[Rfam]
RNA sequence: GUCCUCUUCAACGCUGCGUUUCUAUGCUACAAACGGAAAGCCUGCGAAAGUAGUGCUUUCAAAACCCCUACUGGCAUAUGAGAAAUUCGGAGAAUCCGCUUCGCUCUUUAGUUCGUCCGUCUGCGCUUUCGGGUGUUCGAUGGGCUGCGGACUCUGCCGGUGACGGCUUGGCGCCACCGCGCGUCUGUAAUUGGCAUCAGAAAAGCAGGACCUGGGGCCGUCCUGUGGCAACACGGGUUUCGGUUCCCAUGGUUCCUCUGGGAGAGCCGUUACGAAGCUUGUGCCAAACACUUGAGUGCAAUACGCAGCGUGUGGCUGUGGUUUUCCCUCUAUGGAAGAACCAUGGCCACACAAUUCGAUUCCGAUUAUUCUGUCGAGGAC
Numbered sequence: 001g002u003c004c005u006c007u008u009c010a011a012c013g014c015u016g017c018g019u020u021u022c023u024a025u026g027c028u029a030c031a032a033a034c035g036g037a038a039a040g041c042c043u044g045c046g047a048a049a050g051u052a053g054u055g056c057u058u059u060c061a062a063a064a065c066c067c068c069u070a071c072u073g074g075c076a077u078a079u080g081a082g083a084a085a086u087u088c089g090g091a092g093a094a095u096c097c098g099c100u101u102c103g104c105u106c107u108u109u110a111g112u113u114c115g116u117c118c119g120u121c122u123g124c125g126c127u128u129u130c131g132g133g134u135g136u137u138c139g140a141u142g143g144g145c146u147g148c149g150g151a152c153u154c155u156g157c158c159g160g161u162g163a164c165g166g167c168u169u170g171g172c173g174c175c176a177c178c179g180c181g182c183g184u185c186u187g188u189a190a191u192u193g194g195c196a197u198c199a200g201a202a203a204a205g206c207a208g209g210a211c212c213u214g215g216g217g218c219c220g221u222c223c224u225g226u227g228g229c230a231a232c233a234c235g236g237g238u239u240u241c242g243g244u245u246c247c248c249a250u251g252g253u254u255c256c257u258c259u260g261g262g263a264g265a266g267c268c269g270u271u272a273c274g275a276a277g278c279u280u281g282u283g284c285c286a287a288a289c290a291c292u293u294g295a296g297u298g299c300a301a302u303a304c305g306c307a308g309c310g311u312g313u314g315g316c317u318g319u320g321g322u323u324u325u326c327c328c329u330c331u332a333u334g335g336a337a338g339a340a341c342c343a344u345g346g347c348c349a350c351a352c353a354a355u356u357c358g359a360u361u362c363c364g365a366u367u368a369u370u371c372u373g374u375c376g377a378g379g380a381c
Stems, first nucleotide, its partner, number of pairs: 001381004009373002013309007023078004036060006088364005100277002156167004170185005187273004193268003207257003310352016
RNA: Nuclear RNase P